[Rfam]
RNA: M-box riboswitch aptamer (ykoK leader)
RNA sequence: UAAUAUUCUCGGUAGGUGAGGCUACCAUAGGGAUACGGGUUGCUGCCGCGAAAUAGUGGAGACACUAUUAGAUGGUCAACAGAAUAUGUCGAAGUUAAGGCUUAUUUUAAUGCAAUUUCAUUGCCCUACGGAGUUGAAGCUUGAACGGGCAGUUUAA
Numbered sequence: 001u002a003a004u005a006u007u008c009u010c011g012g013u014a015g016g017u018g019a020g021g022c023u024a025c026c027a028u029a030g031g032g033a034u035a036c037g038g039g040u041u042g043c044u045g046c047c048g049c050g051a052a053a054u055a056g057u058g059g060a061g062a063c064a065c066u067a068u069u070a071g072a073u074g075g076u077c078a079a080c081a082g083a084a085u086a087u088g089u090c091g092a093a094g095u096u097a098a099g100g101c102u103u104a105u106u107u108u109a110a111u112g113c114a115a116u117u118u119c120a121u122u123g124c125c126c127u128a129c130g131g132a133g134u135u136g137a138a139g140c141u142u143g144a145a146c147g148g149g150c151a152g153u154u155u156a157a
Stems, first nucleotide, its partner, number of pairs: 005153003009149002011146001013098001015141003020135003025131002028128005039116005045076004055066004082107004088101003